[Rfam]
Nucleotides: 137
Stems, first nucleotide, its partner, number of pairs: 005052003008047002018040003065130006071079003096122005
Number, partner (000 for none) and nucleotide at each position: 001000a002000a003000g004000a005052g006051u007050g008047a009046g010000a011000u012000c013000c014000u015000a016000c017000u018040g019039g020038c021000a022000c023000a024000u025000u026000u027000g028000u029000u030000a031000a032000g033000u034000u035000u036000u037000u038020g039019c040018c041000u042000g043000a044000c045000u046009c047008u048000g049000c050007c051006a052005c053000a054000u055000a056000u057000a058000u059000u060000a061000u062000a063000u064000c065130g066129g067128a068127g069126c070125u071079g072078g073077c074000a075000a076000a077073g078072c079071u080000u081000g082000a083000u084000a085000a086000c087000a088000a089000a090000g091000a092000g093000a094000u095000c096122u097121c098120u099119c100118u101000u102000a103000a104000g105000c106000c107000u108000u109000u110000c111000c112000u113000g114000c115000a116000u117000c118100a119099g120098a121097g122096a123000c124000u125070g126069g127068c128067u129066c130065c131000c132000a133000c134000a135000u136000g137000u
This 137-nucleotide sequence from Prolemur simus belongs to the Rfam family "Small nucleolar RNA SNORA12". The family has 23 seed sequences and 571 matches in Rfam 15.1. A search with the family's covariance model found it, with a score of 100 bits. U108 belongs to the H/ACA family of snoRNAs. The sequence is predicted to guide the pseudouridylation of the U372 residue in the 28S rRNA subunit. However it has not been reported as a pseudouridylation site. The base pairs follow the family's consensus structure, which was predicted with RNAalifold.